[Rfam]
This 85-nucleotide sequence belongs to the Rfam family "freshwater-2 RNA".
The sequence is in the family's curated seed alignment.
Rfam classes the family as a cis-regulatory element.
Pairs were carried over by alignment from the consensus structure, which is taken from published work.
RNA sequence: GUGUGUUAUUAAGCACACUUAUGCUGUCCCAACAGCGUACCGGAUAGAACCCGGAUAGGACUACUUUUAUAGGAGAAAAAAAAUG
Number, nucleotide and partner (000 for none) at each position: 001g018002u017003g016004u015005g014006u013007u000008a000009u000010u000011a000012a000013g006014c005015a004016c003017a002018c001019u000020u039021a038022u037023g036024c035025u034026g033027u000028c000029c000030c000031a000032a000033c026034a025035g024036c023037g022038u021039a020040c054041c053042g052043g051044a000045u000046a000047g000048a000049a000050c000051c043052c042053g041054g040055a000056u000057a000058g000059g000060a000061c000062u000063a000064c000065u000066u000067u000068u000069a000070u000071a000072g000073g000074a000075g000076a000077a000078a000079a000080a000081a000082a000083a000084u000085g000